The record is a 117-nucleotide RNA from Sapajus apella, which matches "U5 spliceosomal RNA" in Rfam. A search with the family's covariance model found it, with a score of 97 bits. Taxonomically the source falls in Sapajus (Eukaryota, Craniata, Euteleostomi, Boreoeutheria).
[Rfam]
RNA sequence: AUGCUCUGGUUUCUCUUCAUAACGAAUAAAUCUUUCACCUUUUACUAAAGAUUUCCCUGGAGAGGAACAAUUAUGAGUUUAUAACGGAAUUUUUUGAUGUCCUGCUUAGGCAGGGCU
Numbered sequence: 001a002u003g004c005u006c007u008g009g010u011u012u013c014u015c016u017u018c019a020u021a022a023c024g025a026a027u028a029a030a031u032c033u034u035u036c037a038c039c040u041u042u043u044a045c046u047a048a049a050g051a052u053u054u055c056c057c058u059g060g061a062g063a064g065g066a067a068c069a070a071u072u073a074u075g076a077g078u079u080u081a082u083a084a085c086g087g088a089a090u091u092u093u094u095u096g097a098u099g100u101c102c103u104g105c106u107u108a109g110g111c112a113g114g115g116c117u
Stems, first nucleotide, its partner, number of pairs: 003078004009068011028054008097117001099116006